[Rfam]
RNA sequence: CCAGCUGGCUGGACGGCCGCUCCUGCAAGAUCGAAAGGUCGCAGGAGAGGAAAGUCCGGGCUCCAUGGAAACACGGUGCCGGAUAACGUCCGGCGGGGGCGACCCCAGGGAAAGUGCCACAGAGAGCAGACCGCCCGGGAAGCCUUACGAGGCAGUCCGGGUAAGGGUGAAAGGGUGGGGUAAGAGCCCACCGCGGGCCCAGCAAUGGGAACGGCAUGGCAAACCCCACCGGGAGCAAGACCGAAUAGGGGCGGCACGGGCGCAAGCCCAGUCUGUUUCCCGACCCGCCGCCCGGGUUGGUUGCGUGAGGCGUCCGGCAACGGGCGUCCAAGAUGAAUGGUCGUCACGCGGUGGUUCGCCACCGCCCUACAGAACCCGGCUUAUAGGCCAGCUGGCGCU
Numbered sequence: 001c002c003a004g005c006u007g008g009c010u011g012g013a014c015g016g017c018c019g020c021u022c023c024u025g026c027a028a029g030a031u032c033g034a035a036a037g038g039u040c041g042c043a044g045g046a047g048a049g050g051a052a053a054g055u056c057c058g059g060g061c062u063c064c065a066u067g068g069a070a071a072c073a074c075g076g077u078g079c080c081g082g083a084u085a086a087c088g089u090c091c092g093g094c095g096g097g098g099g100c101g102a103c104c105c106c107a108g109g110g111a112a113a114g115u116g117c118c119a120c121a122g123a124g125a126g127c128a129g130a131c132c133g134c135c136c137g138g139g140a141a142g143c144c145u146u147a148c149g150a151g152g153c154a155g156u157c158c159g160g161g162u163a164a165g166g167g168u169g170a171a172a173g174g175g176u177g178g179g180g181u182a183a184g185a186g187c188c189c190a191c192c193g194c195g196g197g198c199c200c201a202g203c204a205a206u207g208g209g210a211a212c213g214g215c216a217u218g219g220c221a222a223a224c225c226c227c228a229c230c231g232g233g234a235g236c237a238a239g240a241c242c243g244a245a246u247a248g249g250g251g252c253g254g255c256a257c258g259g260g261c262g263c264a265a266g267c268c269c270a271g272u273c274u275g276u277u278u279c280c281c282g283a284c285c286c287g288c289c290g291c292c293c294g295g296g297u298u299g300g301u302u303g304c305g306u307g308a309g310g311c312g313u314c315c316g317g318c319a320a321c322g323g324g325c326g327u328c329c330a331a332g333a334u335g336a337a338u339g340g341u342c343g344u345c346a347c348g349c350g351g352u353g354g355u356u357c358g359c360c361a362c363c364g365c366c367c368u369a370c371a372g373a374a375c376c377c378g379g380c381u382u383a384u385a386g387g388c389c390a391g392c393u394g395g396c397g398c399u
Stems, first nucleotide, its partner, number of pairs: 001395010011384001012345007020047007028039001052382003056379005061235004071278001074231005079093005094108001095106004109226002114224002116220003131166002133162007174192006193215001194213002198209004239302004249293006274282002309328008